[Rfam]
RNA sequence: GGCACCUAAAAAGCGUUUUCCUGUUGGUAGAAAAGUGCUCUGGAAAAUCGUAGUUGUGUGCUAUAGCGAAUUCUUUCCAUAGCAAAACGACUUGACUUAUUUUUAGAGAGUUCUUGUCUAUUAAAUUGGUAAACAGAU
Numbered sequence: 001g002g003c004a005c006c007u008a009a010a011a012a013g014c015g016u017u018u019u020c021c022u023g024u025u026g027g028u029a030g031a032a033a034a035g036u037g038c039u040c041u042g043g044a045a046a047a048u049c050g051u052a053g054u055u056g057u058g059u060g061c062u063a064u065a066g067c068g069a070a071u072u073c074u075u076u077c078c079a080u081a082g083c084a085a086a087a088c089g090a091c092u093u094g095a096c097u098u099a100u101u102u103u104u105a106g107a108g109a110g111u112u113c114u115u116g117u118c119u120a121u122u123a124a125a126u127u128g129g130u131a132a133a134c135a136g137a138u
Base pairs, nucleotide, nucleotide: 001062002061003060004059005058006056013051014050015049016047017046018045019044020043023038024037026036074132075131077129078128079127086122087121089118090117091116094113095112096106097105
The family of this 138-nucleotide RNA from Drosophila willistoni is "Small nucleolar RNA psi28S-3316". Rfam's curators put it in the seed alignment. Rfam's curators write: psi28S-3316 is a member of the H/ACA class of snoRNA. This family is responsible for guiding the modification of uridine 3316 in Drosophila 28S rRNA to pseudouridine. By type it is an H/ACA-box small nucleolar RNA.